[Rfam]
A member of the RNA family "Bacterial RNase P class B" from Firmicutes bacterium CAG:449, 329 nucleotides long. It is annotated as a ribozyme.
RNA sequence: UGAUCUGGAUAAUUGCUGGUAGUAAUACUAGAGGAAAGUCCAUGCUCGCGUUAAUCUGCGAUGAUAACAGUGUUUGUGCUAAAGGAAAAAAUAACUUUAGGUAGAUGGGAGCAUCUAACGGCAAGAUGAAACCUAAGUUGAAAAAUAUGGUCUAAUCUUUGAAAGUGCCACAGUGACGUAGUUAAAUAGAAAUAUUUAAGUGGAACGCGGUAAACCCCACAAGCGAGAAACCUAAAUUUGGUAAGGGAGGAGAAAUAGCAAAAUGAAGCGAUUUUCUCAAGCAUUUGCUUAGAUAAAUAAUUAUCCUCGACAAAACAUGGCUUACAGGA
Numbered sequence: 001u002g003a004u005c006u007g008g009a010u011a012a013u014u015g016c017u018g019g020u021a022g023u024a025a026u027a028c029u030a031g032a033g034g035a036a037a038g039u040c041c042a043u044g045c046u047c048g049c050g051u052u053a054a055u056c057u058g059c060g061a062u063g064a065u066a067a068c069a070g071u072g073u074u075u076g077u078g079c080u081a082a083a084g085g086a087a088a089a090a091a092u093a094a095c096u097u098u099a100g101g102u103a104g105a106u107g108g109g110a111g112c113a114u115c116u117a118a119c120g121g122c123a124a125g126a127u128g129a130a131a132c133c134u135a136a137g138u139u140g141a142a143a144a145a146u147a148u149g150g151u152c153u154a155a156u157c158u159u160u161g162a163a164a165g166u167g168c169c170a171c172a173g174u175g176a177c178g179u180a181g182u183u184a185a186a187u188a189g190a191a192a193u194a195u196u197u198a199a200g201u202g203g204a205a206c207g208c209g210g211u212a213a214a215c216c217c218c219a220c221a222a223g224c225g226a227g228a229a230a231c232c233u234a235a236a237u238u239u240g241g242u243a244a245g246g247g248a249g250g251a252g253a254a255a256u257a258g259c260a261a262a263a264u265g266a267a268g269c270g271a272u273u274u275u276c277u278c279a280a281g282c283a284u285u286u287g288c289u290u291a292g293a294u295a296a297a298u299a300a301u302u303a304u305c306c307u308c309g310a311c312a313a314a315a316c317a318u319g320g321c322u323u324a325c326a327g328g329a
Stems, first nucleotide, its partner, number of pairs: 004329003007325001008305007016031006036323003040320005045227005050068004055064002074222005079100006101119001102117006120217002123159004131151003137146003165215002167211003182199007231246003250278005279290004